Shown here is a 108-nucleotide sequence from Bacillus oleivorans, a member of the family "RNA Staph. aureus E (RoxS)". A search with the family's covariance model found it, with a score of 105 bits. Pairs were carried over by alignment from the consensus structure, which is taken from published work. It is annotated as a small RNA. It was shown to be regulated by the presence of nitric oxide (NO).
[Rfam]
RNA sequence: GUGAAGUUAAUCACAAGCAAACACAUACCCCUUUGUUUGACCGUGAAAAAUUUCUCCCAUCCCCUUUGUUCGUUUGAAAAGACCCUUUGCAUAAUGCAAAGGGUCUUU
Dot-bracket structure: ..((((((..((((...((((((..........))))))...))))..))))))...............((....))...(((((((((((...)))))))))))...